[Rfam]
RNA: mir-17 microRNA precursor family
Organism: Salmo trutta
RNA sequence: GCUGUAUUGUCAAAGUGCUUACAGUGCAGGUAGUGUUAUUGAUGAUCUACUGCAGUGGAGGCACUUCUAGCAAUACCGC
Numbered sequence: 001g002c003u004g005u006a007u008u009g010u011c012a013a014a015g016u017g018c019u020u021a022c023a024g025u026g027c028a029g030g031u032a033g034u035g036u037u038a039u040u041g042a043u044g045a046u047c048u049a050c051u052g053c054a055g056u057g058g059a060g061g062c063a064c065u066u067c068u069a070g071c072a073a074u075a076c077c078g079c
Base pairs, nucleotide, nucleotide: 004076005075006074007073009071010070013066014065015064016063017062018061019060020059022057023056025054026053027052029051030050031049032048033047